[Rfam]
Nucleotides: 150
Base pairs, nucleotide, nucleotide: 004147005146006145007144008143009142010141017029018028019027031130032129033119034118035063036062037061038060058117059116066095067094099115100114101113102112103111121133122132123131
Number, partner (000 for none) and nucleotide at each position: 001000c002000a003000u004147c005146g006145u007144u008143c009142u010141c011000a012000g013000g014000g015000c016000g017029g018028g019027g020000c021000g022000a023000a024000a025000u026000u027019c028018c029017c030000c031130a032129c033119c034118g035063g036062c037061g038060g039000u040000a041000a042000g043000a044000a045000g046000c047000a048000a049000u050000u051000g052000c053000u054000u055000u056000a057000a058117g059116c060038c061037c062036g063035c064000g065000a066095g067094c068000g069000c070000c071000u072000c073000g074000g075000c076000c077000a078000a079000u080000a081000g082000g083000u084000a085000g086000a087000g088000g089000g090000u091000c092000u093000a094067g095066c096000a097000g098000a099115u100114c101113a102112g103111g104000u105000g106000a107000a108000a109000c110000u111103c112102c113101u114100g115099a116059g117058c118034c119033g120000a121133c122132g123131g124000u125000c126000a127000u128000a129032g130031u131123c132122c133121g134000g135000a136000u137000g138000g139000a140000a141010g142009a143008g144007a145006a146005c147004g148000u149000g150000c
The family of this 150-nucleotide RNA sequence from Profundibacterium mesophilum is "FMN riboswitch aptamer (RFN element)". The base pairs follow the family's consensus structure, which is taken from published work. It scores 117 bits against the family's covariance model.